A member of the RNA family "Small nucleolar RNA SNORD100" from Nothobranchius furzeri, 82 nucleotides long. The organism belongs to Nothobranchius, within Eukaryota.
RNA sequence: UGUAUCACUGAUGAUAACUUGGCUCCCUUUGCUGAAGUUGUGAGGAAAAUGCCAUUGUUACCCAAUUUCUGUCUGAGAUACA
Numbered sequence: 001u002g003u004a005u006c007a008c009u010g011a012u013g014a015u016a017a018c019u020u021g022g023c024u025c026c027c028u029u030u031g032c033u034g035a036a037g038u039u040g041u042g043a044g045g046a047a048a049a050u051g052c053c054a055u056u057g058u059u060a061c062c063c064a065a066u067u068u069c070u071g072u073c074u075g076a077g078a079u080a081c082a
Stems, first nucleotide, its partner, number of pairs: 001082006
Record summary
Clan: SNORD100 clan. It is annotated as a C/D-box small nucleolar RNA. A search with the family's covariance model found it, with a score of 74 bits.